[Rfam]
The family of this 128-nucleotide RNA is "DUF3800-I RNA". By type it is a small RNA. The sequence is in the family's curated seed alignment. From the family's description: Actinobacteria, Firmicutes, Fusobacteria, Proteobacteria (1 example), Tenericutes (2 examples).
RNA sequence: UUAUUAUACCAGAAGGGAAAUACCCUUUGUUCGGUGUACAGAUAAGAUUAGAUUGAAAAAUUAAGUGUAUUGUAAAUAUACCUACUUAUCUGGAAAGAGUCAGUCAGCUGGCUCUUUUUUUAUGGCAU
Number, nucleotide and partner (000 for none) at each position: 001u000002u000003a000004u000005u000006a000007u036008a035009c034010c033011a030012g028013a027014a026015g025016g024017g023018a000019a000020a000021u000022a000023c017024c016025c015026u014027u013028u012029g000030u011031u000032c000033g010034g009035u008036g007037u000038a000039c092040a091041g090042a089043u088044a087045a000046g000047a000048u000049u084050a083051g082052a061053u060054u059055g000056a000057a000058a000059a054060a053061u052062u000063a000064a000065g081066u080067g079068u078069a077070u076071u000072g000073u000074a000075a000076a070077u069078a068079u067080a066081c065082c051083u050084a049085c000086u000087u044088a043089u042090c041091u040092g039093g118094a117095a116096a115097g114098a113099g112100u111101c110102a109103g000104u000105c000106a000107g000108c000109u102110g101111g100112c099113u098114c097115u096116u095117u094118u093119u000120u000121u000122a000123u000124g000125g000126c000127a000128u000